The record is an 82-nucleotide sequence from Cereibacter sphaeroides, which matches "Proteo-phage-1 RNA" in Rfam. It is one of the family's seed sequences.
Nucleotides: 082
Base pairs, nucleotide, nucleotide: 001015002014003013004012007034008033009032010031011030016025017024018023036060037059038058039057040056045078046077047076048075049074
Number, partner (000 for none) and nucleotide at each position: 001015g002014c003013c004012c005000a006000c007034c008033g009032c010031a011030g012004g013003g014002g015001c016025c017024c018023g019000g020000a021000c022000a023018c024017g025016g026000a027000u028000a029000g030011c031010u032009g033008c034007g035000g036060a037059g038058c039057g040056g041000a042000u043000c044000a045078g046077c047076u048075g049074g050000a051000u052000a053000g054000u055000g056040c057039c058038g059037c060036u061000g062000c063000a064000u065000g066000c067000c068000a069000a070000a071000a072000c073000c074049c075048c076047a077046g078045c079000a080000g081000c082000c